[Rfam]
RNA sequence: AGCGAUAAACGGACGAUGAAAUAAGCCAUUCGGACCCGGGGGCGGUACCCGGCGCCUCCACCUGAGCCCUUCUGCAGCGGAAAUAUCCUCUACAUUUUGAGGAUUGAUCCCGUCGCUGCAAGAGUUGAGGCGGGGGCGAAAUAGGAUCGACGAGGGUGUAAAGAUCGAACUUUUGCUCGGCAUGGUACCACCGUCAUCGGGCUAUAUAGUAGUUGCCAAUGACAACUAUGCGGAAGCACGUCUCGCAGCCUAA
Numbered sequence: 001a002g003c004g005a006u007a008a009a010c011g012g013a014c015g016a017u018g019a020a021a022u023a024a025g026c027c028a029u030u031c032g033g034a035c036c037c038g039g040g041g042g043c044g045g046u047a048c049c050c051g052g053c054g055c056c057u058c059c060a061c062c063u064g065a066g067c068c069c070u071u072c073u074g075c076a077g078c079g080g081a082a083a084u085a086u087c088c089u090c091u092a093c094a095u096u097u098u099g100a101g102g103a104u105u106g107a108u109c110c111c112g113u114c115g116c117u118g119c120a121a122g123a124g125u126u127g128a129g130g131c132g133g134g135g136g137c138g139a140a141a142u143a144g145g146a147u148c149g150a151c152g153a154g155g156g157u158g159u160a161a162a163g164a165u166c167g168a169a170c171u172u173u174u175g176c177u178c179g180g181c182a183u184g185g186u187a188c189c190a191c192c193g194u195c196a197u198c199g200g201g202c203u204a205u206a207u208a209g210u211a212g213u214u215g216c217c218a219a220u221g222a223c224a225a226c227u228a229u230g231c232g233g234a235a236g237c238a239c240g241u242c243u244c245g246c247a248g249c250c251u252a253a
Base pairs, nucleotide, nucleotide: 001177002176003175004174005173014167015166016165017164026156027155030153031152032151036052037051038050039049040048053138054137055136056135057134058133059132178193179192180191
The family of this 253-nucleotide RNA from Zymomonas sp. is "permuted transfer-messenger RNA". It is annotated as a non-coding RNA gene. Rfam links the family to the GO term RNA catabolic process. Pairs were carried over by alignment from the consensus structure, which is taken from published work.